The family of this 93-nucleotide RNA from Phocoena sinus is "Small nucleolar RNA SNORD116". It is annotated as a C/D-box small nucleolar RNA. The organism belongs to Phocoena, within Eukaryota. The literature on the family includes a 2000 paper in Proc Natl Acad Sci U S A by Cavaille et al., "Identification of brain-specific and imprinted small nucleolar RNA genes exhibiting an unusual genomic organization". The match comes from Rfam's covariance-model search (71 bits). Pairs were carried over by alignment from the consensus structure, which was predicted with PFOLD. Gene Ontology terms of the family: RNA processing and nucleolus.

Nucleotides: 093
Stems, first nucleotide, its partner, number of pairs: 001093005027055004032048001034046001
Number, partner (000 for none) and nucleotide at each position: 001093g002092g003091a004090u005089u006000g007000a008000a009000g010000a011000u012000g013000a014000c015000a016000c017000c018000c019000u020000u021000g022000u023000a024000u025000g026000a027055a028054u029053u030052c031000c032048u033000u034046g035000g036000a037000a038000a039000a040000u041000c042000u043000g044000a045000a046034u047000u048032a049000a050000a051000u052030g053029a054028g055027u056000g057000a058000c059000a060000a061000c062000a063000c064000u065000c066000u067000a068000c069000u070000g071000u072000c073000u074000c075000c076000u077000c078000a079000u080000u081000g082000a083000a084000a085000c086000u087000g088000a089005g090004g091003u092002c093001c